RNA sequence: AGACGAUAAUACUCAACCAUCCGCGAGGGUGGGGCGGAAAGCCUAUAGGGUCUCACCGAGACAGCCGGGUUGCCGAA
Numbered sequence: 001a002g003a004c005g006a007u008a009a010u011a012c013u014c015a016a017c018c019a020u021c022c023g024c025g026a027g028g029g030u031g032g033g034g035c036g037g038a039a040a041g042c043c044u045a046u047a048g049g050g051u052c053u054c055a056c057c058g059a060g061a062c063a064g065c066c067g068g069g070u071u072g073c074c075g076a077a
Stems, first nucleotide, its partner, number of pairs: 012037002017032006040071004048066002050062005